[Rfam]
The family of this 127-nucleotide RNA sequence from Pontibacillus marinus is "ylbH leader". Its family is annotated with regulation of gene expression in the Gene Ontology. By type it is a cis-regulatory leader. This family is a putative regulatory RNA structure that is found upstream of the ylbH gene in B. subtilis and related low GC Gram-positive bacteria. It scores 109 bits against the family's covariance model. A reference for the family is Barrick et al. (2004), "New RNA motifs suggest an expanded scope for riboswitches in bacterial genetic control", Proc Natl Acad Sci U S A. The organism belongs to Pontibacillus marinus, within Bacteria.
RNA sequence: AUAAAAAAAAGCCUGCAGAAAAAUUUCUGCAGGCACCUUUUUGGAUUGAACUAAAUCAAACAAAAAGGCAAAGGGAGAGGAGAAACCGGAGGAAGAACUUAUGGGGAAACGUAAGUCUUCUCCGUCU
Numbered sequence: 001a002u003a004a005a006a007a008a009a010a011g012c013c014u015g016c017a018g019a020a021a022a023a024u025u026u027c028u029g030c031a032g033g034c035a036c037c038u039u040u041u042u043g044g045a046u047u048g049a050a051c052u053a054a055a056u057c058a059a060a061c062a063a064a065a066a067g068g069c070a071a072a073g074g075g076a077g078a079g080g081a082g083a084a085a086c087c088g089g090a091g092g093a094a095g096a097a098c099u100u101a102u103g104g105g106g107a108a109a110c111g112u113a114a115g116u117c118u119u120c121u122c123c124g125u126c127u
Base pairs, nucleotide, nucleotide: 011034012033013032014031015030016029017028018027019026036074037073038072039071044061046059047058048057049056087124088123089122090121092120093119094118095117097116098115099114100113101112